[Rfam]
RNA: Nuclear RNase P
Organism: Urocolius indicus
RNA sequence: UCCGGGGGAAGCUCACUGCCGAGGUCACGCACGGGGUGCGCUGUCACCCGCCGCCGCGCCUCGGGGAAGGUCUGAGAGAAGGGCCGGCCGCGGCUCCAGCAGAGCCCUGCCCGCGACGGGUGGGUUGAGCCACCAGCAAGGGGCGGCGCCGCGAGGGCACGUUCCUGGGCAGGAGAAGCCGAGCAGGUUCCCGGCGAACCCCGGCGGAUGCUCGAGGCCACGCGGUGCUUUGAGACAGACUCACGGCCGGCGAACGCUGAGCCCAAUGGGUGAGGUGGGGCACGGGCCCCAUAACCCAAUUCAGACUACUCUCUCCCUGA
Numbered sequence: 001u002c003c004g005g006g007g008g009a010a011g012c013u014c015a016c017u018g019c020c021g022a023g024g025u026c027a028c029g030c031a032c033g034g035g036g037u038g039c040g041c042u043g044u045c046a047c048c049c050g051c052c053g054c055c056g057c058g059c060c061u062c063g064g065g066g067a068a069g070g071u072c073u074g075a076g077a078g079a080a081g082g083g084c085c086g087g088c089c090g091c092g093g094c095u096c097c098a099g100c101a102g103a104g105c106c107c108u109g110c111c112c113g114c115g116a117c118g119g120g121u122g123g124g125u126u127g128a129g130c131c132a133c134c135a136g137c138a139a140g141g142g143g144c145g146g147c148g149c150c151g152c153g154a155g156g157g158c159a160c161g162u163u164c165c166u167g168g169g170c171a172g173g174a175g176a177a178g179c180c181g182a183g184c185a186g187g188u189u190c191c192c193g194g195c196g197a198a199c200c201c202c203g204g205c206g207g208a209u210g211c212u213c214g215a216g217g218c219c220a221c222g223c224g225g226u227g228c229u230u231u232g233a234g235a236c237a238g239a240c241u242c243a244c245g246g247c248c249g250g251c252g253a254a255c256g257c258u259g260a261g262c263c264c265a266a267u268g269g270g271u272g273a274g275g276u277g278g279g280g281c282a283c284g285g286g287c288c289c290c291a292u293a294a295c296c297c298a299a300u301u302c303a304g305a306c307u308a309c310u311c312u313c314u315c316c317c318u319g320a
Base pairs, nucleotide, nucleotide: 001320002319004317007314008313009312012274013273014272015271016270017269020063021062022061023060024059034049035048036047037046038045072304073303074302075301076300082248083247084246085245092106093105094104095103096102107123108122109121110120111119112118126243127242128241129240131238148228149227275292276291277290278289279288280287281286
Dot-bracket structure: ((.(..(((..((((((..(((((.........(((((......))))).........)))))........[[[[[.....((((......(((((.....)))))((((((.....))))))..((((.(................((.............................................................................)).........).)))).))))....................))))))(((((((....))))))).......]]]]].......)))..).))